Rfam assigns this 219-nucleotide RNA from Atractosteus spatula to the family "Small nucleolar RNA U3". The organism belongs to Atractosteus, within Eukaryota. On this family, see Zwieb, Nucleic Acids Res 1997: "The uRNA database". Small nucleolar RNAs (snoRNAs) are involved in the processing and modification of rRNA in the nucleolus. There are two main classes of snoRNAs: the box C/D class, and the box H/ACA class. U3 snoRNA is a member of the box C/D class. Rfam links the family to the GO terms nucleolus and RNA processing. It scores 78 bits against the family's covariance model.
RNA sequence: AAGACUGUACUUCCCGAGAUCAUUUCAAUACAUAGUUACUUUGAGAGAAAUGCCUCUCGAAGGUGCUUGGUCUCACUAUCCAUGAGUAGGAUCAGUAGUGUCCCCUUCUGUACAAGAAGCAAUUUGGGGAUGUUUCUUCAAUGCGGCUGUUCCUGAUCGUUGAUUACUGUUUCUCUCCCUCUAGCAGGCAGUGUAAGAAGUGGACACAUUCUGAGUGGG
Numbered sequence: 001a002a003g004a005c006u007g008u009a010c011u012u013c014c015c016g017a018g019a020u021c022a023u024u025u026c027a028a029u030a031c032a033u034a035g036u037u038a039c040u041u042u043g044a045g046a047g048a049a050a051u052g053c054c055u056c057u058c059g060a061a062g063g064u065g066c067u068u069g070g071u072c073u074c075a076c077u078a079u080c081c082a083u084g085a086g087u088a089g090g091a092u093c094a095g096u097a098g099u100g101u102c103c104c105c106u107u108c109u110g111u112a113c114a115a116g117a118a119g120c121a122a123u124u125u126g127g128g129g130a131u132g133u134u135u136c137u138u139c140a141a142u143g144c145g146g147c148u149g150u151u152c153c154u155g156a157u158c159g160u161u162g163a164u165u166a167c168u169g170u171u172u173c174u175c176u177c178c179c180u181c182u183a184g185c186a187g188g189c190a191g192u193g194u195a196a197g198a199a200g201u202g203g204a205c206a207c208a209u210u211c212u213g214a215g216u217g218g219g
Stems, first nucleotide, its partner, number of pairs: 003042002009036003016026003052067001054065001057063001079219005098207006105200005112170003124156002128152004132147003136143001173193001175191002178188003